RNA: c-di-GMP-I-GGC riboswitch aptamer
RNA sequence: CAUGUGAAAGGCAAACUCGCCGAAAGGCGAGGACGCAAAGCUACGGGCCUAAGGGAAACUACGGUCGCCGGGCUGCCAAGG
Numbered sequence: 001c002a003u004g005u006g007a008a009a010g011g012c013a014a015a016c017u018c019g020c021c022g023a024a025a026g027g028c029g030a031g032g033a034c035g036c037a038a039a040g041c042u043a044c045g046g047g048c049c050u051a052a053g054g055g056a057a058a059c060u061a062c063g064g065u066c067g068c069c070g071g072g073c074u075g076c077c078a079a080g081g
Stems, first nucleotide, its partner, number of pairs: 001081001003078002011036002016031006034067001039074004044070003047065003